[Rfam]
RNA: mraW RNA
Organism: Corynebacterium bovis
RNA sequence: GUGAGGGGUGUGUGCAGGCCCUCACCUGCGCGGACGACCCGGUUUGAUGUACUUCCCCGACAUCAAACCGGCCCCGCGCAGGUGAGGCCCUGUCCACACUCCCGGACCCC
Numbered sequence: 001g002u003g004a005g006g007g008g009u010g011u012g013u014g015c016a017g018g019c020c021c022u023c024a025c026c027u028g029c030g031c032g033g034a035c036g037a038c039c040c041g042g043u044u045u046g047a048u049g050u051a052c053u054u055c056c057c058c059g060a061c062a063u064c065a066a067a068c069c070g071g072c073c074c075c076g077c078g079c080a081g082g083u084g085a086g087g088c089c090c091u092g093u094c095c096a097c098a099c100u101c102c103c104g105g106a107c108c109c110c
Stems, first nucleotide, its partner, number of pairs: 010097003014093005020087014039071012